RNA sequence: CCCGCCGAGGGGCGCUGCGACCAUGGACCUGCGGCCCGAGCCGCGAAGCCGCGCACACGUCCGUGCGCGCCUGCGAUCCCUGGCCAGGCUCGGCAGGGCGUUCCUUCAGCGACAACGGCGCCCGGACCAA
Numbered sequence: 001c002c003c004g005c006c007g008a009g010g011g012g013c014g015c016u017g018c019g020a021c022c023a024u025g026g027a028c029c030u031g032c033g034g035c036c037c038g039a040g041c042c043g044c045g046a047a048g049c050c051g052c053g054c055a056c057a058c059g060u061c062c063g064u065g066c067g068c069g070c071c072u073g074c075g076a077u078c079c080c081u082g083g084c085c086a087g088g089c090u091c092g093g094c095a096g097g098g099c100g101u102u103c104c105u106u107c108a109g110c111g112a113c114a115a116c117g118g119c120g121c122c123c124g125g126a127c128c129a130a
Stems, first nucleotide, its partner, number of pairs: 002096001004094005021083003025079002